[Rfam]
About this RNA: The family of this 96-nucleotide RNA sequence is "DUF3800-III RNA". It is annotated as a small RNA.

RNA sequence: AAACUGAAACAUAAGUCCUGGAUCGGCUGUUCCGAUGUAAGUCGGUACUAUUCCGUCAUCGAACGGUGAGAAUCGGUCCCCAGGGAGAGCCAGUUU
Numbered sequence: 001a002a003a004c005u006g007a008a009a010c011a012u013a014a015g016u017c018c019u020g021g022a023u024c025g026g027c028u029g030u031u032c033c034g035a036u037g038u039a040a041g042u043c044g045g046u047a048c049u050a051u052u053c054c055g056u057c058a059u060c061g062a063a064c065g066g067u068g069a070g071a072a073u074c075g076g077u078c079c080c081c082a083g084g085g086a087g088a089g090c091c092a093g094u095u096u
Base pairs, nucleotide, nucleotide: 001096002095003094004093005092006091010087017084018083019082020081021080025078026077027076032045033044034043035042036041053066054065055064056063